[Rfam]
RNA sequence: CUGGAUGCCAGAAAGGGCCAGCGAUCACCGAGGCGCCGGUUGCUUCGGCGUCUUCGUACCCAUGUUGCUUCAAGGAGGAUAUGGCUAUGGCAA
Numbered sequence: 001c002u003g004g005a006u007g008c009c010a011g012a013a014a015g016g017g018c019c020a021g022c023g024a025u026c027a028c029c030g031a032g033g034c035g036c037c038g039g040u041u042g043c044u045u046c047g048g049c050g051u052c053u054u055c056g057u058a059c060c061c062a063u064g065u066u067g068c069u070u071c072a073a074g075g076a077g078g079a080u081a082u083g084g085c086u087a088u089g090g091c092a093a
Stems, first nucleotide, its partner, number of pairs: 001021004006016001008015001030054010055089004060084007068077003

The family of this 93-nucleotide RNA from Arminella tumorigenes is "Repression of heat shock gene expression (ROSE) element". Rfam 15.1 lists 381 matches to the family in 262 species. Rfam describes the family as follows. This family represents a 5' UTR cis-regulatory element found in heat shock mRNAs and is known as the ROSE (repression of heat shock gene expression) element.